A member of the RNA family "Makes More Granules Regulator RNA (mmgR)" from Rhizobium sp. AC44/96, 72 nucleotides long. It is annotated as a small RNA.
RNA sequence: UGUAAAUACCCUCCUUGGGUGUUUCCUCCCUAGACUUGGACCGCCGCAAGGCGGUCUUUUUUUGAGGACUUC
Numbered sequence: 001u002g003u004a005a006a007u008a009c010c011c012u013c014c015u016u017g018g019g020u021g022u023u024u025c026c027u028c029c030c031u032a033g034a035c036u037u038g039g040a041c042c043g044c045c046g047c048a049a050g051g052c053g054g055u056c057u058u059u060u061u062u063u064g065a066g067g068a069c070u071u072c
Stems, first nucleotide, its partner, number of pairs: 008020004038057008
A search with the family's covariance model found it, with a score of 60 bits. From the family's description: SuhB later renamed mmgR (makes more granules regulator) was a putative non-coding RNA found multiple times in the Agrobacterium tumefaciens genome and related alpha-proteobacteria. Clan: suhB sRNA clan.